The record is a 163-nucleotide RNA sequence from Pan troglodytes, which matches "U1 spliceosomal RNA" in Rfam. The match comes from Rfam's covariance-model search (76 bits).
[Rfam]
RNA sequence: ACGCUUAUCCGCAGGGGAGGUACCAGGAUCACGAAGGUGGUUUCCCAGGGCGAGGCUCAUGCCCUGCACUCCGUAUAUGCUGACCCCGGCCAUUUCUCCAAAUGUGGGAAACGCAACUGCAUCAUUUGUGGUAGUUAGGGACUGCAAUUCACUCUCUCCCCUG
Numbered sequence: 001a002c003g004c005u006u007a008u009c010c011g012c013a014g015g016g017g018a019g020g021u022a023c024c025a026g027g028a029u030c031a032c033g034a035a036g037g038u039g040g041u042u043u044c045c046c047a048g049g050g051c052g053a054g055g056c057u058c059a060u061g062c063c064c065u066g067c068a069c070u071c072c073g074u075a076u077a078u079g080c081u082g083a084c085c086c087c088g089g090c091c092a093u094u095u096c097u098c099c100a101a102a103u104g105u106g107g108g109a110a111a112c113g114c115a116a117c118u119g120c121a122u123c124a125u126u127u128g129u130g131g132u133a134g135u136u137a138g139g140g141a142c143u144g145c146a147a148u149u150c151a152c153u154c155u156c157u158c159c160c161c162u163g
Stems, first nucleotide, its partner, number of pairs: 011120004015046005022041004048087003052084001054081003059076004093111003097107002136163005144156001147153001

The family has 100 seed sequences and 40,184 matches in Rfam 15.1.